Eukaryotic large subunit ribosomal RNA: a 389-nucleotide part of an RNA from Clytia hemisphaerica. The base pairs follow the family's consensus structure, which is taken from published work. A search with the family's covariance model found it, with a score of 3236 bits.
Nucleotides: 389
Stems, first nucleotide, its partner, number of pairs: 008160008018148004023053001025051005055108003062102003069096005074089006111141001116136005168285005289387005295309002298306001315379005320373003324366002332359003336356001339353005
Number, partner (000 for none) and nucleotide at each position: 001000g002000a003000g004000u005000a006000c007000g008160g009159u010158u011157g012156u013155u014154g015153c016000a017000a018148u019147a020146g021145u022000a023053a024000u025051u026050c027049u028048g029047c030000u031000c032000a033000g034000u035000a036000c037000g038000a039000g040000a041000g042000g043000a044000a045000c046000c047029g048028c049027a050026g051025a052000u053023u054000c055108a056107g057106a058000c059000a060000a061000u062102u063101g064100g065000c066000a067000u068000u069096u070095g071094c072093a073092c074089u075088u076087g077086c078085u079084u080000g081000a082000a083000a084079a085078g086077g087076c088075a089074a090000u091000g092073g093072u094071g095070c096069g097000a098000a099000g100064c101063u102062a103000c104000c105000a106057u107056c108055u109000u110000u111141g112000a113000u114000u115000a116136u117135g118134a119133c120132u121000g122000a123000a124000c125000g126000c127000c128000u129000c130000u131000a132120a133119g134118u135117c136116a137000g138000a139000a140000u141111c142000c143000g144000u145021g146020c147019u148018a149000g150000a151000a152000a153015g154014c155013a156012a157011c158010g159009a160008u161000g162000a163000a164000u165000a166000c167000c168285u169284u170283c171282g172281g173000u174000u175000u176000g177000g178000c179000g180000u181000u182000a183000g184000g185000c186000g187000a188000a189000c190000a191000c192000g193000a194000a195000u196000a197000g198000g199000c200000u201000u202000c203000c204000u205000c206000g207000g208000g209000a210000g211000c212000c213000g214000u215000g216000a217000g218000u219000c220000u221000c222000a223000a224000c225000g226000c227000g228000u229000c230000g231000c232000u233000c234000g235000g236000a237000g238000a239000g240000a241000a242000a243000a244000a245000c246000u247000c248000u249000g250000a251000g252000c253000g254000c255000g256000c257000u258000g259000c260000a261000a262000g263000a264000a265000c266000c267000a268000a269000a270000a271000u272000c273000u274000a275000u276000u277000g278000c279000c280000a281172c282171c283170g284169g285168a286000g287000a288000u289387a290386a291385a292384u293383c294000c295309c296308a297000u298306g299000c300000a301000g302000a303000c304000g305000a306298c307000u308296u309295g310000a311000a312000c313000g314000a315379g316378a317377a318376c319375g320373g321372g322371g323000u324366a325365u326000u327000g328000u329000a330000c331000a332359a333358a334357g335000c336356a337000g338000a339353g340352u341351a342350g343349c344000c345000u346000u347000g348000c349343g350342u351341u352340a353339c354000g355000a356336u357334c358333u359332u360000c361000u362000g363000a364000g365325a366324u367000u368000a369000a370000g371322c372321c373320u374000u375319u376318g377317u378316u379315c380000a381000a382000a383293g384292a385291u386290u387289u388000g389000u
Taxonomically the source falls in Clytia (Eukaryota, Eumetazoa, Obeliida, Clytiidae).